[Rfam]
RNA sequence: AACGUUACCGUUUUUAUCGCGGGCCUUAAGUUGAAGACCCAGCGUUACAUUUUUUGGAGUCCCGCGGGAGCGGGAU
Dot-bracket structure: ....................(((.(((......))).)))..................(((((((....)))))))
RNA: SmY spliceosomal RNA
Organism: Meloidogyne hapla